[Rfam]
RNA sequence: GCUGGGCGUUGUGGCGUGCGCCUGUAAUCCAGCUACUUGGAGGCCGGGUGGCGGAAGCUGUCGUGGCCGGGAGUUCCAGACUGCGCCUGCGCAUGUGGAUCGGGUGUCCACGCCAAGCGCGGCGUCGAUAUGGAGGUCAUGCCGGAGGGCUGUGGUCUCCAGGUCGUCUAAGGAGGGGCGCAUCGGGCCAGGGGGGAAACCCAGCAGCCAAAAGCUCCCACGUGGCGCAGUGGUGGGAUCGCGCCUGUGAAUGGUGGGCGCAGGAUGGCCCGGACGGCGUGCGGCGACCUCCGCCUUU
Dot-bracket structure: (((((((((........))))))....(((........)))))).((((((.((..(((((..((.(((((....(((..((((((((...(((.(....(((((((((.(((((.((((.((((((((.(((((((((((((....))).)))))))))).))))((...)).(((((......(((....(((....)))....)))....))))).)))).))))..)))))))...))))))).).)))..))))))))..)))))))).))....)))))..)).))))))..